RNA sequence: UUCUUAUCGUGAGCGGUGGAGGGACUGGCCCUGUGAAGCCCGGCAACCAACAUAGGUUUCAUUUAACUUGUGUAUGGUGCUAAUUCCUGCAGUUAUUUUUUAACUGAGAGAUAAGGG
Numbered sequence: 001u002u003c004u005u006a007u008c009g010u011g012a013g014c015g016g017u018g019g020a021g022g023g024a025c026u027g028g029c030c031c032u033g034u035g036a037a038g039c040c041c042g043g044c045a046a047c048c049a050a051c052a053u054a055g056g057u058u059u060c061a062u063u064u065a066a067c068u069u070g071u072g073u074a075u076g077g078u079g080c081u082a083a084u085u086c087c088u089g090c091a092g093u094u095a096u097u098u099u100u101u102a103a104c105u106g107a108g109a110g111a112u113a114a115g116g117g
Base pairs, nucleotide, nucleotide: 001117002116003115004114005113006112007111008110013041015040016039017038021031022030023029025089027087028086042081043080044079045078047077048076050073051072052071053070054069055068056067057066085109090106091105092104093103094102095101
A member of the RNA family "SAM riboswitch aptamer (S box leader)" from Clostridium paridis, 117 nucleotides long. NCBI's taxonomy places the organism under Bacteria, Bacillati, Bacillota, Clostridiaceae, Clostridium. Rfam's curators write: The SAM riboswitch is found upstream of a number of genes which code for proteins involved in methionine or cysteine biosynthesis in Gram-positive bacteria. The SAM riboswitch acts at the level of transcription termination control. The predicted structure consists of a complex stem-loop region followed by a single stem loop terminator region.